[Rfam]
RNA: MIR4414 microRNA precursor family
RNA sequence: ACUGAAACUCAGCUGCUGACUCGUUGGCUCGAGAGUUCACCAUUAAGAUAGAUUGAUGUUCGGCACUCACGCCAUGUAAUUAAGGUGGUGUGCUUCUGAUCCAACGAUGCGGGAGCUGCAUUCAGUCG
Numbered sequence: 001a002c003u004g005a006a007a008c009u010c011a012g013c014u015g016c017u018g019a020c021u022c023g024u025u026g027g028c029u030c031g032a033g034a035g036u037u038c039a040c041c042a043u044u045a046a047g048a049u050a051g052a053u054u055g056a057u058g059u060u061c062g063g064c065a066c067u068c069a070c071g072c073c074a075u076g077u078a079a080u081u082a083a084g085g086u087g088g089u090g091u092g093c094u095u096c097u098g099a100u101c102c103a104a105c106g107a108u109g110c111g112g113g114a115g116c117u118g119c120a121u122u123c124a125g126u127c128g
Stems, first nucleotide, its partner, number of pairs: 001126006010118005016112003021107007029099003034094003038090003042086002